This 311-nucleotide RNA from Gavia stellata belongs to the Rfam family "7SK RNA". It is annotated as a non-coding RNA gene. It scores 279 bits against the family's covariance model. About the family: 7SK was discovered as an abundant small nuclear RNA in the mid-70s but a possible function has only recently been suggested. Two independent studies have found that 7SK RNA binds the CDK9/cyclin T complex (known as elongation factor P-TEFb). P-TEFb activates transcription by phosphorylating the C-terminal domain of RNA polymerase II. This process is negatively regulated by the 7SK RNP. The secondary structure of 7SK RNA shown here was proposed by Wasserman and Steitz on the basis of chemical modification and enzymatic cleavage experiments. This family contains a number of annotated pseudogenes and 7SK derived repeats. The threshold is artificially high to minimise the pseudogene count.
RNA sequence: GGAUGUGAGGGCAAUCUGGCUGCGACAUCUGUCACCCCAUUGAUUGCCAGGGUUGAUUCAGCUGAUCUGGGUGGCUAGGUGGGUGUCCCCUUCCUCCCUCACCUCUCCAUGUACAUCCCUCCUGAAGCUGUGCGCUCGGUCAAAGAGGACAACCUUCCCCAAUAGAGGUGUACCGGUCAUCGGUCAAGGGUAUACGGCAGCUGCGCUCCCCUGCUAGAACCUCCAAACAAGCUCAAGGUCCAUUUGUAGGAAGUCAAGCUUCCAAGACUGCAGACACAUCCAAGUGAGGCACUGCAUUAGUGCCUAUUUUU
Numbered sequence: 001g002g003a004u005g006u007g008a009g010g011g012c013a014a015u016c017u018g019g020c021u022g023c024g025a026c027a028u029c030u031g032u033c034a035c036c037c038c039a040u041u042g043a044u045u046g047c048c049a050g051g052g053u054u055g056a057u058u059c060a061g062c063u064g065a066u067c068u069g070g071g072u073g074g075c076u077a078g079g080u081g082g083g084u085g086u087c088c089c090c091u092u093c094c095u096c097c098c099u100c101a102c103c104u105c106u107c108c109a110u111g112u113a114c115a116u117c118c119c120u121c122c123u124g125a126a127g128c129u130g131u132g133c134g135c136u137c138g139g140u141c142a143a144a145g146a147g148g149a150c151a152a153c154c155u156u157c158c159c160c161a162a163u164a165g166a167g168g169u170g171u172a173c174c175g176g177u178c179a180u181c182g183g184u185c186a187a188g189g190g191u192a193u194a195c196g197g198c199a200g201c202u203g204c205g206c207u208c209c210c211c212u213g214c215u216a217g218a219a220c221c222u223c224c225a226a227a228c229a230a231g232c233u234c235a236a237g238g239u240c241c242a243u244u245u246g247u248a249g250g251a252a253g254u255c256a257a258g259c260u261u262c263c264a265a266g267a268c269u270g271c272a273g274a275c276a277c278a279u280c281c282a283a284g285u286g287a288g289g290c291a292c293u294g295c296a297u298u299a300g301u302g303c304c305u306a307u308u309u310u311u
Stems, first nucleotide, its partner, number of pairs: 001108003005102007014092001018090002024087010035074002037070003042067004046062002117170001118168004122139004127135002140162001147158003200259003206253002222251003227247005282311003287305008
The base pairs follow the family's consensus structure, which is taken from published work.